[Rfam]
Rfam assigns this 160-nucleotide RNA sequence from Phycicoccus endophyticus to the family "c-di-AMP riboswitch aptamer (ydaO/yuaA leader)".

RNA sequence: UCAUCUCGCACACGUCCGCUGGCAGGAGCGGGGGAACCACUUCGGAGCCACGGCCUCGGCCGCGGCCCCUCGGGGUGAAGCCGGACGGUCUCGCGACCGGACCGGCCGGGCAACCUCAGCCCGAACCCGACAGCUCACCUCGUAGGCACUGAGAGGUUCA
Numbered sequence: 001u002c003a004u005c006u007c008g009c010a011c012a013c014g015u016c017c018g019c020u021g022g023c024a025g026g027a028g029c030g031g032g033g034g035a036a037c038c039a040c041u042u043c044g045g046a047g048c049c050a051c052g053g054c055c056u057c058g059g060c061c062g063c064g065g066c067c068c069c070u071c072g073g074g075g076u077g078a079a080g081c082c083g084g085a086c087g088g089u090c091u092c093g094c095g096a097c098c099g100g101a102c103c104g105g106c107c108g109g110g111c112a113a114c115c116u117c118a119g120c121c122c123g124a125a126c127c128c129g130a131c132a133g134c135u136c137a138c139c140u141c142g143u144a145g146g147c148a149c150u151g152a153g154a155g156g157u158u159c160a
Stems, first nucleotide, its partner, number of pairs: 004027003028143006038072001073128003081105004108122004